[Rfam]
Alphaproteobacteria transfer-messenger RNA: a 367-nucleotide sequence from Brucella abortus. The sequence is in the family's curated seed alignment. Lineage of the source: Bacteria > Pseudomonadati > Hyphomicrobiales > Brucellaceae > Brucella abortus. From the family's description: Bacterial tmRNA, also known as 10Sa RNA or SsrA, is named for its dual tRNA and mRNA-like properties. Rfam classes the family as a non-coding RNA gene.
RNA sequence: CCCCUUCCAAUCGGUAAAAACCACGCCUAUAUACGUCCUGUCGGCGCAAGCCGACUAUGGUGAUAAACGGACGGUGUAAUAAACCCAUUGGACCCGGGGGCGGUACCCGGCGCCUCCACCACAGCACAGCUUGCCGAUCAGGCUGUGUUGUGGCGGGGGCGAAACAGGAUCGACAAGGGUGUAAAGAUCGCUCUUUUACUCGGCAUGAUACCACCGUUAUCGGGUCAACAGAGUAGUUGCAAAUGACAACAAUGCUCAGGGUUAUGCUCUCGCUGCCUAAUGGCGGUGCGGGAAACCCACUCUAAAGUCCUUAGGGUUAGCCCCUUAAGGCGGGGUUCGGAGGCACCUGGCAACAGAAGCCUCCACU
Dot-bracket structure: .......................................(((((......)))))...(((((.....(((((((........(((.(((...(((((.......)))))(((((((.....................................)))))))............)))))).......)))).))).)))))[[[..(((..((.]]].....)).))).........................................................................................................[[[[..((((((]]]]..........))))))...
Numbered sequence: 001c002c003c004c005u006u007c008c009a010a011u012c013g014g015u016a017a018a019a020a021c022c023a024c025g026c027c028u029a030u031a032u033a034c035g036u037c038c039u040g041u042c043g044g045c046g047c048a049a050g051c052c053g054a055c056u057a058u059g060g061u062g063a064u065a066a067a068c069g070g071a072c073g074g075u076g077u078a079a080u081a082a083a084c085c086c087a088u089u090g091g092a093c094c095c096g097g098g099g100g101c102g103g104u105a106c107c108c109g110g111c112g113c114c115u116c117c118a119c120c121a122c123a124g125c126a127c128a129g130c131u132u133g134c135c136g137a138u139c140a141g142g143c144u145g146u147g148u149u150g151u152g153g154c155g156g157g158g159g160c161g162a163a164a165c166a167g168g169a170u171c172g173a174c175a176a177g178g179g180u181g182u183a184a185a186g187a188u189c190g191c192u193c194u195u196u197u198a199c200u201c202g203g204c205a206u207g208a209u210a211c212c213a214c215c216g217u218u219a220u221c222g223g224g225u226c227a228a229c230a231g232a233g234u235a236g237u238u239g240c241a242a243a244u245g246a247c248a249a250c251a252a253u254g255c256u257c258a259g260g261g262u263u264a265u266g267c268u269c270u271c272g273c274u275g276c277c278u279a280a281u282g283g284c285g286g287u288g289c290g291g292g293a294a295a296c297c298c299a300c301u302c303u304a305a306a307g308u309c310c311u312u313a314g315g316g317u318u319a320g321c322c323c324c325u326u327a328a329g330g331c332g333g334g335g336u337u338c339g340g341a342g343g344c345a346c347c348u349g350g351c352a353a354c355a356g357a358a359g360c361c362u363c364c365a366c367u
Stems, first nucleotide, its partner, number of pairs: 040055005059200005069194003072190004084179003088176003094110005111161007201216003206227003211223002333348004339364006